[Rfam]
Nucleotides: 098
Base pairs, nucleotide, nucleotide: 012038013037017033018031019030020029021028022027041092042091043090044089046088047087048086049083050082051081056077057076058075059074060073061072062071
Number, partner (000 for none) and nucleotide at each position: 001000g002000g003000g004000c005000g006000u007000c008000a009000a010000a011000g012038g013037c014000a015000a016000g017033c018031u019030c020029u021028c022027c023000g024000a025000a026000a027022g028021g029020g030019g031018a032000u033017g034000c035000g036000c037013g038012c039000a040000a041092a042091g043090c044089c045000a046088u047087g048086g049083g050082u051081c052000u053000a054000a055000g056077g057076c058075c059074u060073g061072g062071u063000a064000g065000a066000u067000a068000c069000a070000g071062a072061c073060c074059g075058g076057g077056c078000u079000a080000u081051g082050g083049c084000c085000g086048c087047c088046a089044g090043g091042c092041u093000g094000c095000c096000g097000u098000a
Record summary: The record is a 98-nucleotide RNA sequence from Neomoorella thermoacetica, which matches "c-di-GMP-I riboswitch aptamer" in Rfam. Taxonomically the source falls in Neomoorella (Bacteria, Bacillota, Clostridia, Neomoorellaceae). About the family: GEMM was predicted in a large-scale screen for bacterial structured RNA regulatory elements.